[Rfam]
RNA: Purine riboswitch aptamer
Organism: Paenibacillus albus
RNA sequence: AACACAAACAGCAUAUGUUUUCGUAUAAUCUCAAGAAUCGGCUUGAGAGUCUCUACGAGGUCACCGUAAAUGACCUGUCUACGAAAAAGCAAGACUAUUGA
Numbered sequence: 001a002a003c004a005c006a007a008a009c010a011g012c013a014u015a016u017g018u019u020u021u022c023g024u025a026u027a028a029u030c031u032c033a034a035g036a037a038u039c040g041g042c043u044u045g046a047g048a049g050u051c052u053c054u055a056c057g058a059g060g061u062c063a064c065c066g067u068a069a070a071u072g073a074c075c076u077g078u079c080u081a082c083g084a085a086a087a088a089g090c091a092a093g094a095c096u097a098u099u100g101a
Stems, first nucleotide, its partner, number of pairs: 018087008029048007058076006